RNA sequence: UCUGAAACUGGGUGGAUACAGAGAAGCCAAUGUUUCAGA
Numbered sequence: 001u002c003u004g005a006a007a008c009u010g011g012g013u014g015g016a017u018a019c020a021g022a023g024a025a026g027c028c029a030a031u032g033u034u035u036c037a038g039a
Stems, first nucleotide, its partner, number of pairs: 001039008009030001011028003
The family of this 39-nucleotide RNA sequence from Cyclopterus lumpus is "MAT2A 3'UTR stem loop D".
Rfam classes the family as a cis-regulatory element.
The organism belongs to Cyclopterus, within Eukaryota.
The base pairs follow the family's consensus structure, which is taken from published work.
The literature on the family includes a 2011 paper in Genome Res by Parker et al., "New families of human regulatory RNA structures identified by comparative analysis of vertebrate genomes".